[Rfam]
RNA sequence: ACUGGGAAGAGCCUCUUGUGAUGACCCUUCUCUCUGAUGGCUGUGGUGGUGAUGAUGAUCAAACCAAAGCCUCUAAGAAGUUGACUGAAGAGGCUGUUCCUCA
Dot-bracket structure: ......((.((((((((......................................................................)))))))).)).....
Description:
Rfam assigns this 103-nucleotide RNA sequence from Serilophus lunatus to the family "Small nucleolar RNA SNORD125". On this family, see Yang et al., Nucleic Acids Res 2006: "snoSeeker: an advanced computational package for screening of guide and orphan snoRNA genes in the human genome". Rfam 15.1 lists 526 matches to the family in 498 species. It is annotated as a C/D-box small nucleolar RNA. Taxonomically the source falls in Serilophus (Eukaryota, Sauria, Dinosauria, Saurischia).